The record is a 75-nucleotide RNA from Haemonchus placei, which matches "mir-5928 microRNA precursor family" in Rfam. The family's consensus secondary structure was predicted with RNAalifold. NCBI's taxonomy places the organism under Eukaryota, Chromadorea, Rhabditina, Trichostrongylidae, Haemonchus. Its family is annotated with miRNA-mediated post-transcriptional gene silencing and RISC complex in the Gene Ontology.
RNA sequence: GGUCCAAAUUUGAAGUCGAGUGGAUUAGAAGGAUCGGCAGACUUUGCUAAACUACUCUACUUCAAGUUUGUGCCA
Numbered sequence: 001g002g003u004c005c006a007a008a009u010u011u012g013a014a015g016u017c018g019a020g021u022g023g024a025u026u027a028g029a030a031g032g033a034u035c036g037g038c039a040g041a042c043u044u045u046g047c048u049a050a051a052c053u054a055c056u057c058u059a060c061u062u063c064a065a066g067u068u069u070g071u072g073c074c075a
Stems, first nucleotide, its partner, number of pairs: 001074003005070005011064006018057006025050004030045001032043001034041002